A member of the RNA family "mir-454 microRNA precursor family" from Astyanax mexicanus, 102 nucleotides long. The organism belongs to Astyanax, within Eukaryota. The literature on the family includes a 2010 paper in Blood by Jima et al., "Deep sequencing of the small RNA transcriptome of normal and malignant human B cells identifies hundreds of novel microRNAs". A search with the family's covariance model found it, with a score of 85 bits.
[Rfam]
RNA sequence: UCAUCUGAUCCUAAUUUCUGGGACCCUAUCAGUAUUGUCUCUGCUGUCCACUGUGUUCGGAGUAGUGCAAUAUUGCUUAUAGGGUUUCAGUCUUUAGGUGUU
Numbered sequence: 001u002c003a004u005c006u007g008a009u010c011c012u013a014a015u016u017u018c019u020g021g022g023a024c025c026c027u028a029u030c031a032g033u034a035u036u037g038u039c040u041c042u043g044c045u046g047u048c049c050a051c052u053g054u055g056u057u058c059g060g061a062g063u064a065g066u067g068c069a070a071u072a073u074u075g076c077u078u079a080u081a082g083g084g085u086u087u088c089a090g091u092c093u094u095u096a097g098g099u100g101u102u
Base pairs, nucleotide, nucleotide: 020088021087022086023085024084025083026082027081028080029079030075031074032073033072034071035070036069037068038067041065042064043063044062045060